[Rfam]
RNA sequence: UGGCAGUGAUGGUCAUAUUUUUCGUCAACAGUAUGUCACCCUUGAGGUGGAUGUUGAGAGUUUGAAACUGAGCCA
Dot-bracket structure: .(((...((((...........)))).............................................))).
The family of this 75-nucleotide RNA from Megalops atlanticus is "Small nucleolar RNA SNORD56". Rfam 15.1 lists 796 matches to the family in 432 species. It is annotated as a C/D-box small nucleolar RNA. NCBI's taxonomy places the organism under Eukaryota, Metazoa, Bilateria, Actinopterygii, Megalops. The match comes from Rfam's covariance-model search (37 bits).